Shown here is a 74-nucleotide sequence from Chelonia mydas, a member of the family "Small nucleolar RNA SNORD19". The match comes from Rfam's covariance-model search (44 bits). The literature on the family includes a 2001 paper in EMBO J by Huttenhofer et al., "RNomics: an experimental approach that identifies 201 candidates for novel, small, non-messenger RNAs in mouse". Pairs were carried over by alignment from the consensus structure. The organism belongs to Chelonia, within Eukaryota.
RNA sequence: GAGAAAUGAAGAUAAACUCAGUGUCUUACUGUUACAGUGAAGACAUCAGAUCCAACUCUGAUCUCAUUCUGAAU
Numbered sequence: 001g002a003g004a005a006a007u008g009a010a011g012a013u014a015a016a017c018u019c020a021g022u023g024u025c026u027u028a029c030u031g032u033u034a035c036a037g038u039g040a041a042g043a044c045a046u047c048a049g050a051u052c053c054a055a056c057u058c059u060g061a062u063c064u065c066a067u068u069c070u071g072a073a074u
Stems, first nucleotide, its partner, number of pairs: 001065004